The record is a 271-nucleotide RNA from Nannospalax galili, which matches "Mason-Pfizer monkey virus packaging signal" in Rfam.
Rfam classes the family as a cis-regulatory element.
A search with the family's covariance model found it, with a score of 166 bits.
For this family Rfam cites "Mutational analysis of the predicted secondary RNA structure of the Mason-Pfizer monkey virus packaging signal" (Mustafa et al., Virus Res, 2004).
Rfam's curators write: This family represents a group of sequences that are related to the Mason-Pfizer monkey virus (MPMV) packaging signal. The packaging signal is located in the 5' UTR and is required for specific RNA encapsidation.

RNA sequence: UGGUGCCCAACGUGGGGCCUGGAUACUGGGGACAAUGUGAGGGAGAUGAUGAAGGAAAGGGGUGCGCACCUGCUCAAAAAAUUCGGACACGUCGCGGGAGCCUGCUGCGACCGAGCCGAAGGUAAGUUGGUCGUGUAAAUCAUGGGGCAAGAAUUAAGUCAGCAUCAGAUUUAUGUGAUACAGUUAAGAGAAGCUCUACAGGCAAGAGGAGUAAAGGUUAAAACUGAGGAUUUAUUUCAUUUCUUUGAUUUUGUAAAGGACCUUUGUCCUU
Numbered sequence: 001u002g003g004u005g006c007c008c009a010a011c012g013u014g015g016g017g018c019c020u021g022g023a024u025a026c027u028g029g030g031g032a033c034a035a036u037g038u039g040a041g042g043g044a045g046a047u048g049a050u051g052a053a054g055g056a057a058a059g060g061g062g063u064g065c066g067c068a069c070c071u072g073c074u075c076a077a078a079a080a081a082u083u084c085g086g087a088c089a090c091g092u093c094g095c096g097g098g099a100g101c102c103u104g105c106u107g108c109g110a111c112c113g114a115g116c117c118g119a120a121g122g123u124a125a126g127u128u129g130g131u132c133g134u135g136u137a138a139a140u141c142a143u144g145g146g147g148c149a150a151g152a153a154u155u156a157a158g159u160c161a162g163c164a165u166c167a168g169a170u171u172u173a174u175g176u177g178a179u180a181c182a183g184u185u186a187a188g189a190g191a192a193g194c195u196c197u198a199c200a201g202g203c204a205a206g207a208g209g210a211g212u213a214a215a216g217g218u219u220a221a222a223a224c225u226g227a228g229g230a231u232u233u234a235u236u237u238c239a240u241u242u243c244u245u246u247g248a249u250u251u252u253g254u255a256a257a258g259g260a261c262c263u264u265u266g267u268c269c270u271u
Stems, first nucleotide, its partner, number of pairs: 006031003012026003036048003080123001082121001083119002090113002093109005127150003132146001134144002155198002158194002206246006215233005256271006